[Rfam]
RNA sequence: CCUCUAAGUAAUAAAAGGUCCGUUUAGGUCCCUUAACUUUAUUUAAAGUAUCGGUUUGAUCCUUUCUAUUAAUUUAAUUCAAAAAAAUGUUAAGUUUAGCGACCAAAUUAAUACUAAUUGAAUAAGUUAAGGGACCAAACUAAUACUAAUUAAAUAAGAUAAGGGACCAAAAUUUAACAUUUUUUUGAAUUAAAUUAACAGAAAGGACCAAACUGAUACUUUCAAUAAAGUUAAAGGACCAAUACGGACCUUUUAUUACUUAUGGGA
Numbered sequence: 001c002c003u004c005u006a007a008g009u010a011a012u013a014a015a016a017g018g019u020c021c022g023u024u025u026a027g028g029u030c031c032c033u034u035a036a037c038u039u040u041a042u043u044u045a046a047a048g049u050a051u052c053g054g055u056u057u058g059a060u061c062c063u064u065u066c067u068a069u070u071a072a073u074u075u076a077a078u079u080c081a082a083a084a085a086a087a088u089g090u091u092a093a094g095u096u097u098a099g100c101g102a103c104c105a106a107a108u109u110a111a112u113a114c115u116a117a118u119u120g121a122a123u124a125a126g127u128u129a130a131g132g133g134a135c136c137a138a139a140c141u142a143a144u145a146c147u148a149a150u151u152a153a154a155u156a157a158g159a160u161a162a163g164g165g166a167c168c169a170a171a172a173u174u175u176a177a178c179a180u181u182u183u184u185u186u187g188a189a190u191u192a193a194a195u196u197a198a199c200a201g202a203a204a205g206g207a208c209c210a211a212a213c214u215g216a217u218a219c220u221u222u223c224a225a226u227a228a229a230g231u232u233a234a235a236g237g238a239c240c241a242a243u244a245c246g247g248a249c250c251u252u253u254u255a256u257u258a259c260u261u262a263u264g265g266g267a
Base pairs, nucleotide, nucleotide: 002265003264005262006261007260008259023244025242027240028239029238031236033234034233035232036231037230038229039228040227041226042225043224045222046221047220

A member of the RNA family "MIR2655 microRNA precursor family" from Medicago truncatula, 267 nucleotides long. Lineage of the source: Eukaryota > Embryophyta > Spermatophyta > Fabaceae > Medicago.